[Rfam]
RNA sequence: UUAUAGAAUCCGGGGUGCUGGAAUUGGCCGGCUGAGAUUGUAUCCCUUCAAGAUACUGACCCUUUUAACCUGAUCUGGGUAAUGCCAGCGUAGGAAACCGUUUGUCACGGCUU
Numbered sequence: 001u002u003a004u005a006g007a008a009u010c011c012g013g014g015g016u017g018c019u020g021g022a023a024u025u026g027g028c029c030g031g032c033u034g035a036g037a038u039u040g041u042a043u044c045c046c047u048u049c050a051a052g053a054u055a056c057u058g059a060c061c062c063u064u065u066u067a068a069c070c071u072g073a074u075c076u077g078g079g080u081a082a083u084g085c086c087a088g089c090g091u092a093g094g095a096a097a098c099c100g101u102u103u104g105u106c107a108c109g110g111c112u113u
Stems, first nucleotide, its partner, number of pairs: 006101001012062003017032005040056004069094004075088004
RNA: TPP riboswitch aptamer (THI element)
Organism: Paenibacillus rhizosphaerae